[Rfam]
Nucleotides: 093
Stems, first nucleotide, its partner, number of pairs: 001093005026056005032048003
Number, partner (000 for none) and nucleotide at each position: 001093g002092g003091a004090u005089c006000u007000a008000u009000g010000a011000u012000g013000a014000c015000a016000c017000c018000c019000u020000u021000g022000u023000a024000u025000g026056c027055a028054u029053u030052c031000c032048u033047u034046g035000g036000a037000a038000a039000a040000u041000c042000u043000g044000a045000a046034c047033a048032a049000a050000a051000u052030g053029a054028g055027u056026g057000a058000g059000a060000a061000c062000a063000c064000u065000c066000u067000a068000c069000a070000g071000u072000c073000u074000c075000c076000u077000u078000a079000u080000c081000g082000a083000a084000a085000c086000u087000g088000a089005g090004g091003u092002c093001c